The family of this 76-nucleotide RNA sequence from Neogobius melanostomus is "mir-1788 microRNA precursor family". Pairs were carried over by alignment from the consensus structure, which was predicted with RNAalifold. The match comes from Rfam's covariance-model search (79 bits). The family has 11 seed sequences and 504 matches in Rfam 15.1. Gene Ontology terms of the family: miRNA-mediated post-transcriptional gene silencing and RISC complex.

[Rfam]
RNA sequence: CAGUUUUCCGGGCUUGUUUUAAGUUGCCUGCGAUUCUCACUCGGACGCAGGCAGCUAAAGCAAGUCUGGGACGCCA
Numbered sequence: 001c002a003g004u005u006u007u008c009c010g011g012g013c014u015u016g017u018u019u020u021a022a023g024u025u026g027c028c029u030g031c032g033a034u035u036c037u038c039a040c041u042c043g044g045a046c047g048c049a050g051g052c053a054g055c056u057a058a059a060g061c062a063a064g065u066c067u068g069g070g071a072c073g074c075c076a
Stems, first nucleotide, its partner, number of pairs: 003074002006071003010067011022056009032046001
The organism belongs to Neogobius, within Eukaryota.